[Rfam]
RNA sequence: GUUUCCAAUGAUGCUGCUAUUCUUUACCAUGCUAAUAUUGAAUAACCUUUGAUUAUUCUUUUCAUUAUACUAAGAGAACU
Numbered sequence: 001g002u003u004u005c006c007a008a009u010g011a012u013g014c015u016g017c018u019a020u021u022c023u024u025u026a027c028c029a030u031g032c033u034a035a036u037a038u039u040g041a042a043u044a045a046c047c048u049u050u051g052a053u054u055a056u057u058c059u060u061u062u063c064a065u066u067a068u069a070c071u072a073a074g075a076g077a078a079c080u
Base pairs, nucleotide, nucleotide: 001079002078003077004076
Shown here is an 80-nucleotide sequence from Arachis hypogaea, a member of the family "Small nucleolar RNA snoR53Y". The family has 7 seed sequences and 513 matches in Rfam 15.1. Gene Ontology terms of the family: nucleolus and RNA processing. It is annotated as a C/D-box small nucleolar RNA. The family is grouped with related families in Rfam's "snoR53 clan". Pairs were carried over by alignment from the consensus structure, which was predicted with WAR. On this family, see Brown et al., RNA 2001: "Multiple snoRNA gene clusters from Arabidopsis".